[Rfam]
RNA sequence: GUGUUCUCAUUGAGCUCCUUUUUGUCAACUGGUGGCAUUUAUGGAUUUGCAUGAGAUGAAGAGACAGUUCACAGAACUAGUAUUACUUUACCUUCUGCUUUUGGAGAGGUAUAUUUGGCUAUUUUGUGAGACAUUG
Dot-bracket structure: ....((((.....(((((....((((.......)))).....)))...))..))))............((((((.................(((((........)))))..............)))))).......
Numbered sequence: 001g002u003g004u005u006c007u008c009a010u011u012g013a014g015c016u017c018c019u020u021u022u023u024g025u026c027a028a029c030u031g032g033u034g035g036c037a038u039u040u041a042u043g044g045a046u047u048u049g050c051a052u053g054a055g056a057u058g059a060a061g062a063g064a065c066a067g068u069u070c071a072c073a074g075a076a077c078u079a080g081u082a083u084u085a086c087u088u089u090a091c092c093u094u095c096u097g098c099u100u101u102u103g104g105a106g107a108g109g110u111a112u113a114u115u116u117g118g119c120u121a122u123u124u125u126g127u128g129a130g131a132c133a134u135u136g
Stems, first nucleotide, its partner, number of pairs: 005056004014050002016045003023037004069129006092109005